Source information
This 105-nucleotide sequence from Paenibacillus albus belongs to the Rfam family "Glycine riboswitch aptamer". Rfam links the family to the GO term glycine biosynthetic process. Taxonomically the source falls in Paenibacillus (Bacteria, Bacillota, Bacilli, Caryophanales). Rfam's curators write: This family represents the bacterial glycine riboswitch.
RNA sequence: AUGAUGGUAACGGGAGAGACCGCCUAUGGACUUAGAGUGGCGGCGCCGAAGGAGUAAGCUUCGUUCAGAAGUGAAUCUCUCAGGCAAAAGGACCUUUACCGGACG
Numbered sequence: 001a002u003g004a005u006g007g008u009a010a011c012g013g014g015a016g017a018g019a020c021c022g023c024c025u026a027u028g029g030a031c032u033u034a035g036a037g038u039g040g041c042g043g044c045g046c047c048g049a050a051g052g053a054g055u056a057a058g059c060u061u062c063g064u065u066c067a068g069a070a071g072u073g074a075a076u077c078u079c080u081c082a083g084g085c086a087a088a089a090g091g092a093c094c095u096u097u098a099c100c101g102g103a104c105g
Base pairs, nucleotide, nucleotide: 006100007099008098009097010096012094013093020043021042022041023040045085046084047083048081049080052079053078054077058072059071060070061069